[Rfam]
RNA sequence: CCAUCGGCCCUUUUCAGGGCCAUCAAAUGUGUAAAACAGAUUGAA
Numbered sequence: 001c002c003a004u005c006g007g008c009c010c011u012u013u014u015c016a017g018g019g020c021c022a023u024c025a026a027a028u029g030u031g032u033a034a035a036a037c038a039g040a041u042u043g044a045a
Stems, first nucleotide, its partner, number of pairs: 006021006
Histone 3' UTR stem-loop: a 45-nucleotide RNA from Aedes aegypti. Lineage of the source: Eukaryota > Metazoa > Allotriocarida > Eumetabola > Stegomyia. The match comes from Rfam's covariance-model search (35 bits).